[Rfam]
RNA sequence: CCAUAAUCAUGUGACUGACGGAAGUGGAGUUACCACGGGGAGCAUGAUUUCUUGAAGCCGACCGUCUGGGCAAACUUC
Numbered sequence: 001c002c003a004u005a006a007u008c009a010u011g012u013g014a015c016u017g018a019c020g021g022a023a024g025u026g027g028a029g030u031u032a033c034c035a036c037g038g039g040g041a042g043c044a045u046g047a048u049u050u051c052u053u054g055a056a057g058c059c060g061a062c063c064g065u066c067u068g069g070g071c072a073a074a075c076u077u078c
Stems, first nucleotide, its partner, number of pairs: 005049008015039002017066005024036004057071003
The record is a 78-nucleotide RNA sequence from Megasphaera elsdenii, which matches "ZMP/ZTP riboswitch aptamer (pfl RNA motif)" in Rfam.
The source organism's lineage runs through Bacteria, Bacillati, Bacillota, Veillonellales and Megasphaera elsdenii.
It scores 62 bits against the family's covariance model.
Pairs were carried over by alignment from the consensus structure, which is taken from published work.